[Rfam]
RNA sequence: UCGCUUCCUGCAGGGUCAAGGACAAGGUCAGGGAGGCCAUGCUCCCUUCCACAUGUGUCCCAGGCCCUUGAUCUUGGACCCUGGACAUCUGGUGU
Dot-bracket structure: .((((...(.(((((((.(((((((((((.((((.((.(((..........))))).)))).)).))))).)))).))))))).).....)))).